[Rfam]
RNA sequence: GGUCACGAGUACCAGCGUUCAGCCCCGGCUUGCUGGUCGGCAACCCUCCACCUACGGCGGGGUGCUCCGGGUGACGACCUGGCUGAUGCCCAACCGGGCACGGCAAGCGUGGACU
Number, nucleotide and partner (000 for none) at each position: 001g079002g078003u077004c076005a000006c000007g000008a000009g038010u000011a037012c036013c035014a034015g033016c032017g000018u000019u000020c000021a030022g029023c000024c000025c000026c000027g000028g000029c022030u021031u000032g016033c015034u014035g013036g012037u011038c009039g066040g065041c064042a000043a000044c062045c061046c060047u000048c057049c056050a000051c000052c000053u000054a000055c000056g049057g048058c000059g000060g046061g045062g044063u000064g041065c040066u039067c000068c000069g000070g000071g000072u000073g000074a000075c000076g004077a003078c002079c001080u000081g000082g104083c103084u102085g101086a000087u100088g099089c098090c097091c096092a000093a000094c000095c000096g091097g090098g089099c088100a087101c085102g084103g083104c082105a000106a000107g000108c000109g000110u000111g000112g000113a000114c000115u000
The record is a 115-nucleotide sequence from Antrihabitans stalactiti, which matches "SAM (S-adenosyl methionine) riboswitch aptamer" in Rfam. Its family is annotated with S-adenosylmethionine metabolic process and regulation of gene expression in the Gene Ontology. NCBI's taxonomy places the organism under Bacteria, Bacillati, Actinomycetota, Mycobacteriales, Antrihabitans.